Source information
A member of the RNA family "Cauldobacter sRNA CC3552" from Brevundimonas sp., 105 nucleotides long.
[Rfam]
RNA sequence: GGAGGCGGCCACGCCCCCCGACUUGAGACUGGCUUAGGCCGGUCUGUCGCCUCCGCGCCUCAUUCUCGAUGAUGCCGACUUCAGGCGGGCCUUUCAGGCCCGCCU
Numbered sequence: 001g002g003a004g005g006c007g008g009c010c011a012c013g014c015c016c017c018c019c020g021a022c023u024u025g026a027g028a029c030u031g032g033c034u035u036a037g038g039c040c041g042g043u044c045u046g047u048c049g050c051c052u053c054c055g056c057g058c059c060u061c062a063u064u065c066u067c068g069a070u071g072a073u074g075c076c077g078a079c080u081u082c083a084g085g086c087g088g089g090c091c092u093u094u095c096a097g098g099c100c101c102g103c104c105u
Stems, first nucleotide, its partner, number of pairs: 001054009012020002027044007083105009
It is annotated as a small RNA.
The source organism's lineage runs through Bacteria, Pseudomonadati, Pseudomonadota, Caulobacterales and Brevundimonas.